This 71-nucleotide RNA belongs to the Rfam family "DUF3800-IX RNA". The family's RNA type in Rfam is small RNA. Actinobacteria, Firmicutes (1 example), Nitrospirae, Proteobacteria, Verrucomicrobia (1 example).
[Rfam]
RNA sequence: GACCUUGUUUCCAAAUUGUCACCGUAUGGUGCGCGUUUCAGGCUCGCUCCUAAAUAGGAACAAGGUCGUUU
Numbered sequence: 001g002a003c004c005u006u007g008u009u010u011c012c013a014a015a016u017u018g019u020c021a022c023c024g025u026a027u028g029g030u031g032c033g034c035g036u037u038u039c040a041g042g043c044u045c046g047c048u049c050c051u052a053a054a055u056a057g058g059a060a061c062a063a064g065g066u067c068g069u070u071u
Base pairs, nucleotide, nucleotide: 001067002066003065004064005063006062007061008060010059011058012057017035018034019033020031021030022029023028037054038053040051041050